[Rfam]
A member of the RNA family "Tryptophan operon leader" from Shewanella oneidensis, 108 nucleotides long. Pairs were carried over by alignment from the consensus structure, which is taken from published work. Rfam's curators write: At least 6 amino acid operons are known to be regulated by attenuation. In each a leader sequence of 150-200 bp is found upstream of the first gene in the operon. This leader sequence can assume two different secondary structures known as the terminator and the anti-terminator structure. Rfam links the family to the GO terms tryptophan biosynthetic process and transcriptional attenuation by ribosome. The literature on the family includes a 1982 paper in Annu Rev Genet by Kolter and Yanofsky, "Attenuation in amino acid biosynthetic operons". The match comes from Rfam's covariance-model search (42 bits).
RNA sequence: AUCAUUUGGUGGUGGCACUUCCCAACUUAGCGGGUAGUGUGAAGCUCUGUGCUCAUUUGAAAGUAACAGAAUCAACAGAAAAGCCCGCAGAAAUGCGGGCUUUUUUGU
Number, nucleotide and partner (000 for none) at each position: 001a000002u000003c000004a000005u000006u000007u000008g000009g047010u000011g045012g000013u000014g000015g040016c039017a038018c037019u036020u000021c034022c033023c032024a000025a000026c000027u000028u000029a000030g000031c000032g023033g022034g021035u000036a019037g018038u017039g016040u015041g000042a000043a000044g000045c011046u000047c009048u000049g000050u000051g000052c000053u000054c000055a000056u000057u000058u000059g000060a000061a000062a000063g000064u000065a000066a000067c000068a000069g000070a000071a000072u000073c000074a000075a000076c000077a000078g000079a000080a000081a000082a101083g100084c099085c098086c097087g096088c095089a094090g000091a000092a000093a000094u089095g088096c087097g086098g085099g084100c083101u082102u000103u000104u000105u000106u000107g000108u000